mir-11 microRNA precursor family: a 77-nucleotide RNA from Scaptodrosophila lebanonensis.
Gene Ontology terms of the family: negative regulation of apoptotic process, cellular response to gamma radiation and RISC complex.
RNA sequence: GCACUUGUCAAGAACUUAAGCUGUGACCUGCGUCUGUUAUCUCAAAUCGCAUCACAGUCUGAGUUCUUGCUGAGUGU
Number, nucleotide and partner (000 for none) at each position: 001g000002c000003a000004c074005u073006u072007g000008u000009c069010a068011a067012g066013a065014a064015c063016u062017u061018a000019a000020g000021c057022u056023g055024u054025g053026a052027c000028c000029u000030g050031c049032g048033u000034c000035u000036g000037u000038u000039a000040u000041c000042u000043c000044a000045a000046a000047u000048c032049g031050c030051a000052u026053c025054a024055c023056a022057g021058u000059c000060u000061g017062a016063g015064u014065u013066c012067u011068u010069g009070c000071u000072g006073a005074g004075u000076g000077u000
Its Rfam clan is "mir-6 clan".